[Rfam]
RNA: L2-Alphaproteobacteria ribosomal protein leader
RNA sequence: GGGCACCUUCGGGGGCCUAUAACAGCGGUGGGCCUUACACCCACCCGAUAUAGCGGGCCCAAGGGCGCGCAUUUGCAAACGGAAGACAGAAA
Numbered sequence: 001g002g003g004c005a006c007c008u009u010c011g012g013g014g015g016c017c018u019a020u021a022a023c024a025g026c027g028g029u030g031g032g033c034c035u036u037a038c039a040c041c042c043a044c045c046c047g048a049u050a051u052a053g054c055g056g057g058c059c060c061a062a063g064g065g066c067g068c069g070c071a072u073u074u075g076c077a078a079a080c081g082g083a084a085g086a087c088a089g090a091a092a
Stems, first nucleotide, its partner, number of pairs: 001018004006014003028070003032066005
Dot-bracket structure: ((((.(((...))))))).........(((.(((((.........................))))).)))......................